[Rfam]
RNA sequence: AGCGGGAAGCCCAGCGGUGGGGCCACGCGCGGAGUGCGCGUCACUCUCCCGGCCCCUGGGAAGGUCUGAGACUCGGGCCAGCAGCGGCCCUAGCAGGGCCCUCCCCACGCGGGGGGGGGGGGGGGGUGAGUUCCCAGAGAGCGGCCCCGGCGAGGGCCUUCGGGCAGGAGAGGCCGCGCCCCCUCCCCGGGGCUUGGAAUAGACUCACGGCCGGCCGGCACGGUGAGUUCAAUGGCUGGGCCGGGGCACCCAAGCAGGCCGGGCAUUGGGCCGCGGGGCUCCGGAACCCAAUUCAGACUACUCUCCCCCGCC
Numbered sequence: 001a002g003c004g005g006g007a008a009g010c011c012c013a014g015c016g017g018u019g020g021g022g023c024c025a026c027g028c029g030c031g032g033a034g035u036g037c038g039c040g041u042c043a044c045u046c047u048c049c050c051g052g053c054c055c056c057u058g059g060g061a062a063g064g065u066c067u068g069a070g071a072c073u074c075g076g077g078c079c080a081g082c083a084g085c086g087g088c089c090c091u092a093g094c095a096g097g098g099c100c101c102u103c104c105c106c107a108c109g110c111g112g113g114g115g116g117g118g119g120g121g122g123g124g125g126g127u128g129a130g131u132u133c134c135c136a137g138a139g140a141g142c143g144g145c146c147c148c149g150g151c152g153a154g155g156g157c158c159u160u161c162g163g164g165c166a167g168g169a170g171a172g173g174c175c176g177c178g179c180c181c182c183c184u185c186c187c188c189g190g191g192g193c194u195u196g197g198a199a200u201a202g203a204c205u206c207a208c209g210g211c212c213g214g215c216c217g218g219c220a221c222g223g224u225g226a227g228u229u230c231a232a233u234g235g236c237u238g239g240g241c242c243g244g245g246g247c248a249c250c251c252a253a254g255c256a257g258g259c260c261g262g263g264c265a266u267u268g269g270g271c272c273g274c275g276g277g278g279c280u281c282c283g284g285a286a287c288c289c290a291a292u293u294c295a296g297a298c299u300a301c302u303c304u305c306c307c308c309c310g311c312c
Base pairs, nucleotide, nucleotide: 002309005306006305007304010240011239012238013237014236015235019056020055021054022053032046033045034044035043036042066296067295068294069293070292076216077215078214079213086100087099088098089097090096101116102115103114104113126208127207128206129205130204131203132202144193145192146191241284242283243282244281245280246279247278